This 326-nucleotide RNA sequence from Todus mexicanus belongs to the Rfam family "7SK RNA".
Rfam's curators write: 7SK was discovered as an abundant small nuclear RNA in the mid-70s but a possible function has only recently been suggested. Two independent studies have found that 7SK RNA binds the CDK9/cyclin T complex (known as elongation factor P-TEFb). P-TEFb activates transcription by phosphorylating the C-terminal domain of RNA polymerase II. This process is negatively regulated by the 7SK RNP. The secondary structure of 7SK RNA shown here was proposed by Wasserman and Steitz on the basis of chemical modification and enzymatic cleavage experiments. This family contains a number of annotated pseudogenes and 7SK derived repeats. The threshold is artificially high to minimise the pseudogene count.
The base pairs follow the family's consensus structure, which is taken from published work.
Rfam classes the family as a non-coding RNA gene.
Lineage of the source: Eukaryota > Opisthokonta > Amniota > Aves > Todus.
[Rfam]
RNA sequence: GGAUGUGAGGGCGAUCUGGCUUCGACAUCUGUCACCCCAUUGCUCGCCAGGGUUCAUUCGGCUGAGCAGGCUGAUCUGGUUCGCUAGGCGGGUGUCCCCUUCCUCCCUCACCACUCCAUGUGCGUCCCUCCCAAAGCUAUGCGCUCGGUCGAAGAGGACAACCUUCCCCGAUAGAGGUGAACCGUCCAUUGGUCAAGGGUAUACGGUAGCUGUGCUCCCCUGCUAGAACAUCCAAACAAGCUCAAGGUCCAUUUGUAGGAGAACAUAGGGGUGAUAAUUUUUUUUUUCUUAUCACUCUCUACAACUCCCUGAAGGGAAGUUGUAGA
Numbered sequence: 001g002g003a004u005g006u007g008a009g010g011g012c013g014a015u016c017u018g019g020c021u022u023c024g025a026c027a028u029c030u031g032u033c034a035c036c037c038c039a040u041u042g043c044u045c046g047c048c049a050g051g052g053u054u055c056a057u058u059c060g061g062c063u064g065a066g067c068a069g070g071c072u073g074a075u076c077u078g079g080u081u082c083g084c085u086a087g088g089c090g091g092g093u094g095u096c097c098c099c100u101u102c103c104u105c106c107c108u109c110a111c112c113a114c115u116c117c118a119u120g121u122g123c124g125u126c127c128c129u130c131c132c133a134a135a136g137c138u139a140u141g142c143g144c145u146c147g148g149u150c151g152a153a154g155a156g157g158a159c160a161a162c163c164u165u166c167c168c169c170g171a172u173a174g175a176g177g178u179g180a181a182c183c184g185u186c187c188a189u190u191g192g193u194c195a196a197g198g199g200u201a202u203a204c205g206g207u208a209g210c211u212g213u214g215c216u217c218c219c220c221u222g223c224u225a226g227a228a229c230a231u232c233c234a235a236a237c238a239a240g241c242u243c244a245a246g247g248u249c250c251a252u253u254u255g256u257a258g259g260a261g262a263a264c265a266u267a268g269g270g271g272u273g274a275u276a277a278u279u280u281u282u283u284u285u286u287u288c289u290u291a292u293c294a295c296u297c298u299c300u301a302c303a304a305c306u307c308c309c310u311g312a313a314g315g316g317a318a319g320u321u322g323u324a325g326a
Base pairs, nucleotide, nucleotide: 001117002116003115005111006110007109008108009107010106011105013102014101018099019098024096025095026094027093028092029091030090031089032088033087035083037079038078039077042076044074045073046071047070048069125180126179127177128176129175130174131148132147134145136144137143149171150170151169156167157166158165209279211277215273218270219269220268221267222266231260232259233258236256237255238254239253240252298326299325300324301323302322303321304320305319306316307315308314